This 73-nucleotide sequence from Tepidibacillus sp. HK-1 belongs to the Rfam family "tRNA". The organism belongs to Tepidibacillus, within Bacteria. Pairs were carried over by alignment from the consensus structure, which is taken from published work. By type it is a transfer RNA.

RNA sequence: GCGGCCAUGGCGAAGUGGUUAACGCACCGGAUUGUGGCUCCGGCAUCCGUGGGUUCGAUUCCCACUGGUCGCC
Numbered sequence: 001g002c003g004g005c006c007a008u009g010g011c012g013a014a015g016u017g018g019u020u021a022a023c024g025c026a027c028c029g030g031a032u033u034g035u036g037g038c039u040c041c042g043g044c045a046u047c048c049g050u051g052g053g054u055u056c057g058a059u060u061c062c063c064a065c066u067g068g069u070c071g072c073c
Base pairs, nucleotide, nucleotide: 001072002071003070004069005068006067007066010025011024012023027043028042029041030040031039049065050064051063052062053061